[Rfam]
RNA sequence: CUAUCUUGAAGUUCAUCCUCUGAUCAGGGAUGCCCAGAGCUAAAAGAUAGUAGUAACAAUUUAAUAGAAAGUCAACCCACUGGGACGGUUGGCCAUUUAAGAAGUGAGGAUUCAUUUUUUAUGGCCAAUACAAGUGAAGAUAGGAAGUUCCGUGUGGAUUCUCA
Numbered sequence: 001c002u003a004u005c006u007u008g009a010a011g012u013u014c015a016u017c018c019u020c021u022g023a024u025c026a027g028g029g030a031u032g033c034c035c036a037g038a039g040c041u042a043a044a045a046g047a048u049a050g051u052a053g054u055a056a057c058a059a060u061u062u063a064a065u066a067g068a069a070a071g072u073c074a075a076c077c078c079a080c081u082g083g084g085a086c087g088g089u090u091g092g093c094c095a096u097u098u099a100a101g102a103a104g105u106g107a108g109g110a111u112u113c114a115u116u117u118u119u120u121a122u123g124g125c126c127a128a129u130a131c132a133a134g135u136g137a138a139g140a141u142a143g144g145a146a147g148u149u150c151c152g153u154g155u156g157g158a159u160u161c162u163c164a
Stems, first nucleotide, its partner, number of pairs: 001050005007044001010041004014032005033084005070160004075155002090127005103116005